RNA sequence: CAAGUUGAUAGAGGCGCGAAGCAAAAGAAGGAUCAGAGAGCCGGCAGGCACAGACCUGAUCUGGAGGUACCUUCGCCGAAUCGAAGUUUCCAGGCAUGGCGCUUCGGUGGGCAUACAGCGAACAGCUGUGUGACUGUCUGUUUUGAACCACGAUUCAAAACAGUUGAGCUAUCCGUUCG
Numbered sequence: 001c002a003a004g005u006u007g008a009u010a011g012a013g014g015c016g017c018g019a020a021g022c023a024a025a026a027g028a029a030g031g032a033u034c035a036g037a038g039a040g041c042c043g044g045c046a047g048g049c050a051c052a053g054a055c056c057u058g059a060u061c062u063g064g065a066g067g068u069a070c071c072u073u074c075g076c077c078g079a080a081u082c083g084a085a086g087u088u089u090c091c092a093g094g095c096a097u098g099g100c101g102c103u104u105c106g107g108u109g110g111g112c113a114u115a116c117a118g119c120g121a122a123c124a125g126c127u128g129u130g131u132g133a134c135u136g137u138c139u140g141u142u143u144u145g146a147a148c149c150a151c152g153a154u155u156c157a158a159a160a161c162a163g164u165u166g167a168g169c170u171a172u173c174c175g176u177u178c179g
Stems, first nucleotide, its partner, number of pairs: 007173005016076006024068001030062007080108008089099002109135002112132008138163009
Rfam assigns this 179-nucleotide sequence from Hominibacterium faecale to the family "Lysine riboswitch aptamer". Taxonomically the source falls in Hominibacterium (Bacteria, Clostridia, Peptostreptococcales, Anaerovoracaceae). About the family: Riboswitches are metabolite binding domains within certain messenger RNAs that serve as precision sensors for their corresponding targets. Its family is annotated with lysine biosynthetic process in the Gene Ontology.